[Rfam]
RNA sequence: UCAUCAGGUUCUGUAUCAUGGCUUGAUGAUAUUGCGAAAUUAACACAUUUGGUUGAGCAGGGUGGAUCCCGUUAAACACUCCAAUGGCGGGAUUAAAAUCUCGUGAAUUGCUGGAACACCCUUAGAGCUUUAUCAACCACAACGUGACUGGCAACGGUGAGCGUGAAGGUUUGAAAAUGAUAAGGAUUGGGCAAUCAGCAGCGAAGCAUCUCUGGAAACGGAGAUGAACGUUCAACGACUAUUGAAACUCCCUAAUUCUUACUAAAAACAUAAAAAAGGUGUAAAUUAAAUGGAAGAAAUGGGAGGAGUAAAUCAUAUGGUAUGGAAACGACCUUAUGAGGCGCGAGACAAGGAAGAGUUAAUUAAAAAAAUUUAUAUAUCUCCAUAAUCAUGGAUAUAGCUACGAUUUUUUCUUCCUUGAUGAGAUAGUCUGAUCUCAUGUGAAAGCAUGAG
Dot-bracket structure: ....((((((.((...)).)))))).....(((....)))..........................................................[[[[.[[...((((((....(((...................................................................)))...))))))((.....((((..........))))....))...(.(((((....................................................................................................]].]]]]..((((((((....................................................))))))))........)))))).....(((((....)))))..

A member of the RNA family "Group I catalytic intron" from Heyndrickxia sporothermodurans, 453 nucleotides long. For this family Rfam cites "Self-splicing of group I introns" (Cech, Annu Rev Biochem, 1990). Rfam describes the family as follows. Group I catalytic introns are large self-splicing ribozymes. They catalyse their own excision from mRNA, tRNA and rRNA precursors in a wide range of organisms. Lineage of the source: Bacteria > Bacillati > Bacillota > Bacilli > Heyndrickxia. The match comes from Rfam's covariance-model search (85 bits). Rfam links the family to the GO term Group I intron splicing.